[Rfam]
Shown here is a 69-nucleotide RNA sequence from Prochlorococcus marinus, a member of the family "Cyano-1 RNA". Rfam classes the family as a small RNA. Rfam's curators put it in the seed alignment.

RNA sequence: CAAGUGUGAAGGAGUGGUUUUACUCAAGCAGUGGGAACAAGGAAACACUUGGUUAGGUAAAACCAGAAA
Numbered sequence: 001c002a003a004g005u006g007u008g009a010a011g012g013a014g015u016g017g018u019u020u021u022a023c024u025c026a027a028g029c030a031g032u033g034g035g036a037a038c039a040a041g042g043a044a045a046c047a048c049u050u051g052g053u054u055a056g057g058u059a060a061a062a063c064c065a066g067a068a069a
Stems, first nucleotide, its partner, number of pairs: 015065006024057002029051002031048003
Dot-bracket structure: ..............((((((...((...(((((............))).))....))..))))))....
The base pairs follow the family's consensus structure, which is taken from published work.